Shown here is a 95-nucleotide RNA from Rhodococcus sp. RD6.2, a member of the family "Glycine riboswitch aptamer". The match comes from Rfam's covariance-model search (63 bits). The source organism's lineage runs through Bacteria, Actinomycetota, Mycobacteriales, Nocardiaceae and Rhodococcus. Rfam 15.1 lists 9,425 matches to the family in 5,228 species.

[Rfam]
RNA sequence: CGUCGCCGCGCGGGAGAGCUCCGGACCGAGGUUCGGACGCCGAAGGAGCAGCACCUCCCCGUCAAUCUCUCAGGCACCCGGACCGUGCGGGCAUC
Numbered sequence: 001c002g003u004c005g006c007c008g009c010g011c012g013g014g015a016g017a018g019c020u021c022c023g024g025a026c027c028g029a030g031g032u033u034c035g036g037a038c039g040c041c042g043a044a045g046g047a048g049c050a051g052c053a054c055c056u057c058c059c060c061g062u063c064a065a066u067c068u069c070u071c072a073g074g075c076a077c078c079c080g081g082a083c084c085g086u087g088c089g090g091g092c093a094u095c
Stems, first nucleotide, its partner, number of pairs: 006090008020037004039075003042071002046069003053062002